[Rfam]
RNA: Small nucleolar RNA psi18S-841/snoR66
Organism: Drosophila mojavensis
RNA sequence: UGCAGGCGCACUCUGUGUCACAUUGAAUUGCCUCGUGUGAUGACAAUUUGUUAACCUUGCUAGAGUAAAUUGAUGAAGCUGCGAUUUAUCCAUGUGAUCCUGUACCUCAAAUGGAUUACAUUGAAAACUCGGCUUACACUCG
Numbered sequence: 001u002g003c004a005g006g007c008g009c010a011c012u013c014u015g016u017g018u019c020a021c022a023u024u025g026a027a028u029u030g031c032c033u034c035g036u037g038u039g040a041u042g043a044c045a046a047u048u049u050g051u052u053a054a055c056c057u058u059g060c061u062a063g064a065g066u067a068a069a070u071u072g073a074u075g076a077a078g079c080u081g082c083g084a085u086u087u088a089u090c091c092a093u094g095u096g097a098u099c100c101u102g103u104a105c106c107u108c109a110a111a112u113g114g115a116u117u118a119c120a121u122u123g124a125a126a127a128c129u130c131g132g133c134u135u136a137c138a139c140u141c142g
Stems, first nucleotide, its partner, number of pairs: 002060002004057003010051002014045003017041007025034002067140001072134001079131001083128001089124002092121008